A member of the RNA family "msiK RNA" from Microbacterium esteraromaticum, 59 nucleotides long. The family's RNA type in Rfam is cis-regulatory element. The source organism's lineage runs through Bacteria, Bacillati, Actinomycetota, Micrococcales and Microbacterium.

RNA sequence: CUUCGCCGCUCUAUCACUACGGAUCGUCCGGCACGUACCUGCCGGUGAAGGAGAAAUGU
Numbered sequence: 001c002u003u004c005g006c007c008g009c010u011c012u013a014u015c016a017c018u019a020c021g022g023a024u025c026g027u028c029c030g031g032c033a034c035g036u037a038c039c040u041g042c043c044g045g046u047g048a049a050g051g052a053g054a055a056a057u058g059u
Base pairs, nucleotide, nucleotide: 010051011050012049014048015047016046028045029044030043031042032041033040